[Rfam]
Shown here is a 96-nucleotide RNA sequence from Sinorhizobium sp. BG8, a member of the family "RcsR1 sRNA". RcsR1 (rhizobial cold and salinity stress riboregulator 1) trans-acting sRNA, formerly known as SmelC587, is a stress-related riboregulator, conserved in Sinorhizobium, Rhizobium and Agrobacterium. The family's consensus secondary structure is taken from published work. A search with the family's covariance model found it, with a score of 93 bits. A reference for the family is Baumgardt et al. (2015), "The stress-related, rhizobial small RNA RcsR1 destabilizes the autoinducer synthase encoding mRNA sinI in Sinorhizobium meliloti", RNA Biol. Rfam links the family to the GO terms sRNA-mediated gene silencing and negative regulation of translation in response to stress.
RNA sequence: AAAUUUCGAUCUGGUGGUGGGCUCGCUGAGGCGGCCUUGACCAGUCAUGCGUGAUUGAGAGCACAAGCCGCCCGAAAUCUUCGAGGCGGCUUUUUC
Numbered sequence: 001a002a003a004u005u006u007c008g009a010u011c012u013g014g015u016g017g018u019g020g021g022c023u024c025g026c027u028g029a030g031g032c033g034g035c036c037u038u039g040a041c042c043a044g045u046c047a048u049g050c051g052u053g054a055u056u057g058a059g060a061g062c063a064c065a066a067g068c069c070g071c072c073c074g075a076a077a078u079c080u081u082c083g084a085g086g087c088g089g090c091u092u093u094u095u096c
Stems, first nucleotide, its partner, number of pairs: 011044005017038001019037004024033003048059001050057002065092008073083003